[Rfam]
RNA sequence: GGGGAUGAUCGGUUUCGACGAUGCCAGCUGCGGCAGGUGAAGCGGGCCGAGAACGCAGAGUCAUCUCGUUAAUGUCCUCUGCACACCAAUAAGUGCCAAAUCUGAAAAGCGCACUGACUUCGCUCUCGCUGCGUAAGUAGCCUGAGCAGUCUGCUAGCCCGGGGUCGCUUCCGCCCCGGUUCCUAGCAUCAGCUGAGGAAGCCACUGCUCCAGUCCCUCUCCGCAGGGGGCUGGGGAACACUCAUGCGGAUAGGUUCGGCGGCAACCCGUGUGCGGGAGUGCCGGAGCCGAGAACACCGUGACGCACACUGCGCCCGGAGAAACCCUGCCAAUCCUGCAUCGGACCGGGGUUCGAUUCCCCGCAUCUCCACCC
Numbered sequence: 001g002g003g004g005a006u007g008a009u010c011g012g013u014u015u016c017g018a019c020g021a022u023g024c025c026a027g028c029u030g031c032g033g034c035a036g037g038u039g040a041a042g043c044g045g046g047c048c049g050a051g052a053a054c055g056c057a058g059a060g061u062c063a064u065c066u067c068g069u070u071a072a073u074g075u076c077c078u079c080u081g082c083a084c085a086c087c088a089a090u091a092a093g094u095g096c097c098a099a100a101u102c103u104g105a106a107a108a109g110c111g112c113a114c115u116g117a118c119u120u121c122g123c124u125c126u127c128g129c130u131g132c133g134u135a136a137g138u139a140g141c142c143u144g145a146g147c148a149g150u151c152u153g154c155u156a157g158c159c160c161g162g163g164g165u166c167g168c169u170u171c172c173g174c175c176c177c178g179g180u181u182c183c184u185a186g187c188a189u190c191a192g193c194u195g196a197g198g199a200a201g202c203c204a205c206u207g208c209u210c211c212a213g214u215c216c217c218u219c220u221c222c223g224c225a226g227g228g229g230g231c232u233g234g235g236g237a238a239c240a241c242u243c244a245u246g247c248g249g250a251u252a253g254g255u256u257c258g259g260c261g262g263c264a265a266c267c268c269g270u271g272u273g274c275g276g277g278a279g280u281g282c283c284g285g286a287g288c289c290g291a292g293a294a295c296a297c298c299g300u301g302a303c304g305c306a307c308a309c310u311g312c313g314c315c316c317g318g319a320g321a322a323a324c325c326c327u328g329c330c331a332a333u334c335c336u337g338c339a340u341c342g343g344a345c346c347g348g349g350g351u352u353c354g355a356u357u358c359c360c361c362g363c364a365u366c367u368c369c370a371c372c373c
Stems, first nucleotide, its partner, number of pairs: 001369007019342005025337003032330006039324001043317005048068005055082006124145002128141005152188006159179007167202006208236009220250005253289005259283001260281002266277002271309003275303001346362005
transfer-messenger RNA: a 373-nucleotide RNA from Rothia kristinae.
The source organism's lineage runs through Bacteria, Bacillati, Actinomycetes, Micrococcaceae and Rothia.
Rfam classes the family as a non-coding RNA gene.
About the family: Bacterial tmRNA, also known as 10Sa RNA or SsrA, is named for its dual tRNA and mRNA-like properties. Its role is to liberate the mRNA from a stalled ribosome. To accomplish this part of the tmRNA is used as a reading frame that ends in a translation stop signal.
For this family Rfam cites "Phylogenetic analysis of tmRNA secondary structure" (Williams and Bartel, RNA, 1996).